[Rfam]
Overview:
The record is a 95-nucleotide RNA from Abyssalbus ytuae, which matches "TPP riboswitch aptamer (THI element)" in Rfam. It scores 70 bits against the family's covariance model. The family's consensus secondary structure is taken from published work. Taxonomically the source falls in Abyssalbus (Bacteria, Pseudomonadati, Flavobacteriia, Flavobacteriaceae). Rfam links the family to the GO term thiamine pyrophosphate binding.
RNA sequence: UUCUUAUACUCGGGGUGUUCAAUGUGUUGGGCUGAGAUUAUACCCGUAAACCUGAUCUGGAUAAUUCCAGCGUAGGAAAGUAAAAUCUGCUUUCA
Numbered sequence: 001u002u003c004u005u006a007u008a009c010u011c012g013g014g015g016u017g018u019u020c021a022a023u024g025u026g027u028u029g030g031g032c033u034g035a036g037a038u039u040a041u042a043c044c045c046g047u048a049a050a051c052c053u054g055a056u057c058u059g060g061a062u063a064a065u066u067c068c069a070g071c072g073u074a075g076g077a078a079a080g081u082a083a084a085a086u087c088u089g090c091u092u093u094c095a
Stems, first nucleotide, its partner, number of pairs: 007082004011046004016040001017032005051076004057070004